[Rfam]
RNA sequence: AAAUGGGACAGCUCUCCCCAACGAGAGUCAACUAUCUGGAAGGGUAGAGAAC
Numbered sequence: 001a002a003a004u005g006g007g008a009c010a011g012c013u014c015u016c017c018c019c020a021a022c023g024a025g026a027g028u029c030a031a032c033u034a035u036c037u038g039g040a041a042g043g044g045u046a047g048a049g050a051a052c
Stems, first nucleotide, its partner, number of pairs: 011028006032047006
RNA: serC leader